[Rfam]
RNA: Bacterial RNase P class B
RNA sequence: CGAGAAUCAAUCGCUAGAAAUAGAGGAAAGUCCGUGCUAUCACUGACUGAGAUGUCAGUAGUGUGCGUGCCAGACCUAAUAAGUCUGGGCUUAGACGACAGUAGAAGCCUAAGUCGUAAGAUAGGGUGUAUACUUUAAAGUGCCACAGAGACUAUAUCUUUGCGAAAGCAAGGGGUGAAAAGAGGUAAACUCCGCGCGAUAGAAACCCAAAUUUCGGUAGGGGAGUCUGAUAGAAGGAAUUCAACUGACAUCAGAUAGUAAAACUAAGAUAAAUGAUUGAUUGAAAAACAGAACACGGCUUAUC
Numbered sequence: 001c002g003a004g005a006a007u008c009a010a011u012c013g014c015u016a017g018a019a020a021u022a023g024a025g026g027a028a029a030g031u032c033c034g035u036g037c038u039a040u041c042a043c044u045g046a047c048u049g050a051g052a053u054g055u056c057a058g059u060a061g062u063g064u065g066c067g068u069g070c071c072a073g074a075c076c077u078a079a080u081a082a083g084u085c086u087g088g089g090c091u092u093a094g095a096c097g098a099c100a101g102u103a104g105a106a107g108c109c110u111a112a113g114u115c116g117u118a119a120g121a122u123a124g125g126g127u128g129u130a131u132a133c134u135u136u137a138a139a140g141u142g143c144c145a146c147a148g149a150g151a152c153u154a155u156a157u158c159u160u161u162g163c164g165a166a167a168g169c170a171a172g173g174g175g176u177g178a179a180a181a182g183a184g185g186u187a188a189a190c191u192c193c194g195c196g197c198g199a200u201a202g203a204a205a206c207c208c209a210a211a212u213u214u215c216g217g218u219a220g221g222g223g224a225g226u227c228u229g230a231u232a233g234a235a236g237g238a239a240u241u242c243a244a245c246u247g248a249c250a251u252c253a254g255a256u257a258g259u260a261a262a263a264c265u266a267a268g269a270u271a272a273a274u275g276a277u278u279g280a281u282u283g284a285a286a287a288a289c290a291g292a293a294c295a296c297g298g299c300u301u302a303u304c
Stems, first nucleotide, its partner, number of pairs: 005303001006281007014023003028301003032298005037202005042059006065197005070088006089096001090094001097192002100134004108126002113122003140190002142186003157174007206222003226255006256266004